[Rfam]
Shown here is a 130-nucleotide RNA sequence from Sorex araneus, a member of the family "Small Cajal body specific RNA 24". scaRNAs are a specific class of small nuclear RNAs which localise to the Cajal bodies and guide the modification of RNA polymerase II transcribed spliceosomal RNAs U1, U2, U4, U5 and U12. ACA12 belongs to the H/ACA box class of guide RNAs as it has the predicted hairpin-hinge-hairpin-tail structure,the conserved H/ACA-box motifs and is found associated with GAR1. Taxonomically the source falls in Sorex (Eukaryota, Laurasiatheria, Soricidae, Soricinae). It is annotated as a small Cajal body RNA. Rfam links the family to the GO terms nucleolus, RNA processing and Cajal body.

RNA sequence: UGGACAUUUAUUUUCAAGCAAUUUCUUCUUACAGCGAAGAUAACAACUACUGAAUAUCCUAGAGAAAAUCAGUAGUUCUCUGUGUAUCCUAUGCAAGUAAAAUGGGUGUAUCACCCCACUACUGACAUUU
Numbered sequence: 001u002g003g004a005c006a007u008u009u010a011u012u013u014u015c016a017a018g019c020a021a022u023u024u025c026u027u028c029u030u031a032c033a034g035c036g037a038a039g040a041u042a043a044c045a046a047c048u049a050c051u052g053a054a055u056a057u058c059c060u061a062g063a064g065a066a067a068a069u070c071a072g073u074a075g076u077u078c079u080c081u082g083u084g085u086a087u088c089c090u091a092u093g094c095a096a097g098u099a100a101a102a103u104g105g106g107u108g109u110a111u112c113a114c115c116c117c118a119c120u121a122c123u124g125a126c127a128u129u130u
Stems, first nucleotide, its partner, number of pairs: 002059003006055005022043002024040005070124006089104001092101001
Dot-bracket structure: .(((.(((((...........(((((((.......))))).)).......))))).)))..........((((((.............(..(........)..)..............))))))......